[Rfam]
Background: mir-9256 microRNA precursor family: a 67-nucleotide RNA sequence from Cnephaeus nilssonii. A search with the family's covariance model found it, with a score of 82 bits. Taxonomically the source falls in Cnephaeus (Eukaryota, Deuterostomia, Gnathostomata, Euteleostomi).
RNA sequence: CUUUACACUGAGUGGCCAGGUUAUGAUGAUCUCUGAACGCAUAGUAAUCUGGCCACUCAGUGUAUAU
Numbered sequence: 001c002u003u004u005a006c007a008c009u010g011a012g013u014g015g016c017c018a019g020g021u022u023a024u025g026a027u028g029a030u031c032u033c034u035g036a037a038c039g040c041a042u043a044g045u046a047a048u049c050u051g052g053c054c055a056c057u058c059a060g061u062g063u064a065u066a067u
Stems, first nucleotide, its partner, number of pairs: 004064014019049006026042003